[Rfam]
RNA sequence: AGAGUACUGAUGAUAUUACUUCGUAUAAUACUGGGGAUAUGGCCCAGAAGUUUCUACCGAGCUGCCGUAAAGAGCUUGACUACGAGGUAUGUGUAAAGGGAG
Number, nucleotide and partner (000 for none) at each position: 001a000002g000003a000004g000005u000006a000007c000008u000009g000010a000011u000012g000013a000014u000015a000016u000017u000018a088019c087020u086021u085022c084023g083024u082025a081026u000027a000028a000029u049030a000031c047032u046033g045034g044035g043036g000037a000038u000039a000040u000041g000042g000043c035044c034045c033046a032047g031048a000049a029050g000051u000052u000053u000054c000055u000056a000057c000058c078059g077060a076061g075062c074063u073064g000065c000066c000067g000068u000069a000070a000071a000072g000073a063074g062075c061076u060077u059078g058079a000080c000081u025082a024083c023084g022085a021086g020087g019088u018089a000090u000091g000092u000093g000094u000095a000096a000097a000098g000099g000100g000101a000102g000
RNA: Purine riboswitch aptamer
Organism: Bacillus sp. B-jedd